This 60-nucleotide RNA sequence from Longispora fulva belongs to the Rfam family "Actino-pnp RNA". The organism belongs to Longispora, within Bacteria. A search with the family's covariance model found it, with a score of 63 bits. By type it is a cis-regulatory element.
RNA sequence: ACCGGUCCUCGGUAGUGGUUGCCGGACACCAGAUUCCGGCGGCUUCGAUCGAAGACCGGC
Numbered sequence: 001a002c003c004g005g006u007c008c009u010c011g012g013u014a015g016u017g018g019u020u021g022c023c024g025g026a027c028a029c030c031a032g033a034u035u036c037c038g039g040c041g042g043c044u045u046c047g048a049u050c051g052a053a054g055a056c057c058g059g060c
Base pairs, nucleotide, nucleotide: 002059003058004057005056006055007054009052010051011050012049013048017044018043019042020041021040022039023038024037025036026035028034
Dot-bracket structure: .((((((.(((((...((((((((((.(.....)))))))))))...))))).)))))).